[Rfam]
This 68-nucleotide sequence from Virgibacillus salinus belongs to the Rfam family "Bacillaceae-1 RNA". The family's consensus secondary structure is taken from published work. It is annotated as a small RNA.
RNA sequence: GACUCCUGCGGGUCGGCUAAAGACGGCCACGUCCUGUGGCCAACGCCGACACUAGAACGUCGUGUUCG
Numbered sequence: 001g002a003c004u005c006c007u008g009c010g011g012g013u014c015g016g017c018u019a020a021a022g023a024c025g026g027c028c029a030c031g032u033c034c035u036g037u038g039g040c041c042a043a044c045g046c047c048g049a050c051a052c053u054a055g056a057a058c059g060u061c062g063u064g065u066u067c068g
Stems, first nucleotide, its partner, number of pairs: 012050006026040005055067004